[Rfam]
RNA sequence: ACUGUGGACUAUACAAGAACCUGUGAGUAGAUACUGAUUUGUCAGAUUGAAAGCAUAUAGGAUGAAACAGUAA
Numbered sequence: 001a002c003u004g005u006g007g008a009c010u011a012u013a014c015a016a017g018a019a020c021c022u023g024u025g026a027g028u029a030g031a032u033a034c035u036g037a038u039u040u041g042u043c044a045g046a047u048u049g050a051a052a053g054c055a056u057a058u059a060g061g062a063u064g065a066a067a068c069a070g071u072a073a
Stems, first nucleotide, its partner, number of pairs: 001071005009060005022055003030048003034045002
The family of this 73-nucleotide RNA sequence is "RAGATH-18 RNA". Rfam's curators put it in the seed alignment.